[Rfam]
RNA sequence: CGACAUGAUAGAGGUGCGUGUUUCAUCAGUAACUUUCAUCUCUGGCCAACAGAUGAAGGAGAAAGGGAAACACGCCGAGGGUUAAGUUGUUGAGGCCAAAGCGACUUAAUACCGGGCCGUUGUAGAAUAUACUGCGGACUGUCGUUCUUUCAGUAGAACGUUGAGCUGUCAUGCCU
Numbered sequence: 001c002g003a004c005a006u007g008a009u010a011g012a013g014g015u016g017c018g019u020g021u022u023u024c025a026u027c028a029g030u031a032a033c034u035u036u037c038a039u040c041u042c043u044g045g046c047c048a049a050c051a052g053a054u055g056a057a058g059g060a061g062a063a064a065g066g067g068a069a070a071c072a073c074g075c076c077g078a079g080g081g082u083u084a085a086g087u088u089g090u091u092g093a094g095g096c097c098a099a100a101g102c103g104a105c106u107u108a109a110u111a112c113c114g115g116g117c118c119g120u121u122g123u124a125g126a127a128u129a130u131a132c133u134g135c136g137g138a139c140u141g142u143c144g145u146u147c148u149u150u151c152a153g154u155a156g157a158a159c160g161u162u163g164a165g166c167u168g169u170c171a172u173g174c175c176u
Stems, first nucleotide, its partner, number of pairs: 006171006016075009033059007079113002082109010114140002117137004122132003143160006
RNA: Lysine riboswitch aptamer